[Rfam]
RNA sequence: UUCUUUGGCGGGCAGACCAUUUCGAAAGAGUGGGGCGCAAAGCCUUGAAUCUAAGGUAACUAAGUUGCUAUGAUUGUCAGGCUGCAGAA
Numbered sequence: 001u002u003c004u005u006u007g008g009c010g011g012g013c014a015g016a017c018c019a020u021u022u023c024g025a026a027a028g029a030g031u032g033g034g035g036c037g038c039a040a041a042g043c044c045u046u047g048a049a050u051c052u053a054a055g056g057u058a059a060c061u062a063a064g065u066u067g068c069u070a071u072g073a074u075u076g077u078c079a080g081g082c083u084g085c086a087g088a089a
Stems, first nucleotide, its partner, number of pairs: 012038002017033004022029002041083004046079003049074003056068004
Record summary: This 89-nucleotide sequence from Pelotomaculum isophthalicicum belongs to the Rfam family "c-di-GMP-I riboswitch aptamer". The base pairs follow the family's consensus structure, which is taken from published work. About the family: GEMM was predicted in a large-scale screen for bacterial structured RNA regulatory elements. Gene Ontology term of the family: cyclic-di-GMP binding. The match comes from Rfam's covariance-model search (64 bits).